[Rfam]
RNA sequence: GGGCUUCAAAACCGGCCGGACUCCCUCUAUGUUACCUCUGCCGGUCGCAAGACCGGCUAUGGCGAUAAACGGUCUUCGAAAUAAACCUAUCGGACCCGGGGGCGGUACCCGGCGCCUCCACCAAGACCCAGGGCCUUUGGACGCAACGUCCGCAAAAGGGCGGGUUGCCUGGGUUUCGGCGGGGGCGAAAUAGGAUCGACGAGGGCGUAAAGGUAGAGCUUUCGCUCGGCAUGGUUCCGCCGUUAUCGGGCCUCUGCAAUAGUUGCCAAUGACAACUUUGCUCCGGUGGCGGUGGCUGCGUAAGCGGUCCCCAAUACCAAACCAAAGUCCUACCGGUUAGCAUCGGAUAGGCGGGGUUCGGAGGCACCUGGCAACAGAAGCCUCCACU
Dot-bracket structure: .......................................(((((((....)))))))...(((((.....(.(((.(........(((.(((...(((((.......)))))(((((((.............................................................)))))))............)))))).......).))).)..)))))((((..[[.[[[)))).....]]]]].....................................................................................................[[[[..((((((]]]]..........))))))...
Numbered sequence: 001g002g003g004c005u006u007c008a009a010a011a012c013c014g015g016c017c018g019g020a021c022u023c024c025c026u027c028u029a030u031g032u033u034a035c036c037u038c039u040g041c042c043g044g045u046c047g048c049a050a051g052a053c054c055g056g057c058u059a060u061g062g063c064g065a066u067a068a069a070c071g072g073u074c075u076u077c078g079a080a081a082u083a084a085a086c087c088u089a090u091c092g093g094a095c096c097c098g099g100g101g102g103c104g105g106u107a108c109c110c111g112g113c114g115c116c117u118c119c120a121c122c123a124a125g126a127c128c129c130a131g132g133g134c135c136u137u138u139g140g141a142c143g144c145a146a147c148g149u150c151c152g153c154a155a156a157a158g159g160g161c162g163g164g165u166u167g168c169c170u171g172g173g174u175u176u177c178g179g180c181g182g183g184g185g186c187g188a189a190a191u192a193g194g195a196u197c198g199a200c201g202a203g204g205g206c207g208u209a210a211a212g213g214u215a216g217a218g219c220u221u222u223c224g225c226u227c228g229g230c231a232u233g234g235u236u237c238c239g240c241c242g243u244u245a246u247c248g249g250g251c252c253u254c255u256g257c258a259a260u261a262g263u264u265g266c267c268a269a270u271g272a273c274a275a276c277u278u279u280g281c282u283c284c285g286g287u288g289g290c291g292g293u294g295g296c297u298g299c300g301u302a303a304g305c306g307g308u309c310c311c312c313a314a315u316a317c318c319a320a321a322c323c324a325a326a327g328u329c330c331u332a333c334c335g336g337u338u339a340g341c342a343u344c345g346g347a348u349a350g351g352c353g354g355g356g357u358u359c360g361g362a363g364g365c366a367c368c369u370g371g372c373a374a375c376a377g378a379a380g381c382c383u384c385c386a387c388u
Stems, first nucleotide, its partner, number of pairs: 040057007061226005071219001073217003077213001086205003090202003096112005113187007227242004233252002236250003354369004360385006